[Rfam]
Rfam assigns this 101-nucleotide RNA sequence from Clostridium sp. SM-530-WT-3G to the family "Purine riboswitch aptamer". Taxonomically the source falls in Clostridium (Bacteria, Bacillati, Bacillota, Clostridia).

RNA sequence: CAUAAAUAAAACAAAAGCUAUCGUAUAAAGUUGAUAGAAUGGAUCAACAGUUUCUACCAGGUCACCGUUAUGGCCUGACUACGAUAUUGGAUUCUUAUUUU
Numbered sequence: 001c002a003u004a005a006a007u008a009a010a011a012c013a014a015a016a017g018c019u020a021u022c023g024u025a026u027a028a029a030g031u032u033g034a035u036a037g038a039a040u041g042g043a044u045c046a047a048c049a050g051u052u053u054c055u056a057c058c059a060g061g062u063c064a065c066c067g068u069u070a071u072g073g074c075c076u077g078a079c080u081a082c083g084a085u086a087u088u089g090g091a092u093u094c095u096u097a098u099u100u101u
Base pairs, nucleotide, nucleotide: 019086020085021084022083023082024081025080030048031047032046033045034044035043058077059076060075061074062073063072064071